[Rfam]
RNA: permuted transfer-messenger RNA
Organism: Algicella marina
RNA sequence: GGUGAUAAACGCGCAUGUAAUAAACGGAUCGGACCCGGGGGCGGUACCCGGCGGCUCCACCAAAAACCCUUCAUUUGGGGGUGCAUGGGGCCGAAACAGGAUCGACGGACGUCUAAAGAUGUUAGCUUUCACUCGGCGGGAUGCCACCGUUAUCGGUUCACCUAAGCUAGUUGCAAAUGACAACAAAGCUCCGAUGGCUCUCGCAGCGUAA
Numbered sequence: 001g002g003u004g005a006u007a008a009a010c011g012c013g014c015a016u017g018u019a020a021u022a023a024a025c026g027g028a029u030c031g032g033a034c035c036c037g038g039g040g041g042c043g044g045u046a047c048c049c050g051g052c053g054g055c056u057c058c059a060c061c062a063a064a065a066a067c068c069c070u071u072c073a074u075u076u077g078g079g080g081g082u083g084c085a086u087g088g089g090g091c092c093g094a095a096a097c098a099g100g101a102u103c104g105a106c107g108g109a110c111g112u113c114u115a116a117a118g119a120u121g122u123u124a125g126c127u128u129u130c131a132c133u134c135g136g137c138g139g140g141a142u143g144c145c146a147c148c149g150u151u152a153u154c155g156g157u158u159c160a161c162c163u164a165a166g167c168u169a170g171u172u173g174c175a176a177a178u179g180a181c182a183a184c185a186a187a188g189c190u191c192c193g194a195u196g197g198c199u200c201u202c203g204c205a206g207c208g209u210a211a
Base pairs, nucleotide, nucleotide: 001133002132003131004130005129013122014121015120016119025111026110029108030107031106035051036050037049038048039047052093053092054091055090056089057088058087134149135148136147
Dot-bracket structure: (((((.......((((........((..(((...(((((.......)))))(((((((............................)))))))............))).)).......))))......)))))(((..........)))..............................................................